[Rfam]
RNA sequence: AUAAAAAGUGUUGUGUACAGCAACCGAUUUCAUAAAUUUGCUUUCCGAGUAGCCCCUAAGUUGAGGGGCUUUUUUUAUGCC
Numbered sequence: 001a002u003a004a005a006a007a008g009u010g011u012u013g014u015g016u017a018c019a020g021c022a023a024c025c026g027a028u029u030u031c032a033u034a035a036a037u038u039u040g041c042u043u044u045c046c047g048a049g050u051a052g053c054c055c056c057u058a059a060g061u062u063g064a065g066g067g068g069c070u071u072u073u074u075u076u077a078u079g080c081c
Base pairs, nucleotide, nucleotide: 001076003074004073005072006071007070008069022042024040026038027037028036053068054067055066056065057064
Overview:
A member of the RNA family "Aggregatibacter sRNA 20" from Actinobacillus pleuropneumoniae, 81 nucleotides long. The pairing is the family consensus, mapped onto this sequence. The family's RNA type in Rfam is small RNA. Rfam describes the family as follows. Validated by RT-PCR and Northern blot. It is one of the family's seed sequences.